[Rfam]
RNA sequence: GGUUUGUUUACAAACCGCAUACGAUAAACGAUGUUUGCCGUUUACGGCAAACUCGAAGAUAAACAGUGAGGCUGAAUUCCUGCCGAGCUGUUUAUCGUAC
Numbered sequence: 001g002g003u004u005u006g007u008u009u010a011c012a013a014a015c016c017g018c019a020u021a022c023g024a025u026a027a028a029c030g031a032u033g034u035u036u037g038c039c040g041u042u043u044a045c046g047g048c049a050a051a052c053u054c055g056a057a058g059a060u061a062a063a064c065a066g067u068g069a070g071g072c073u074g075a076a077u078u079c080c081u082g083c084c085g086a087g088c089u090g091u092u093u094a095u096c097g098u099a100c
Stems, first nucleotide, its partner, number of pairs: 001016006029055003033052008058096010070084002
RNA: TD-2 RNA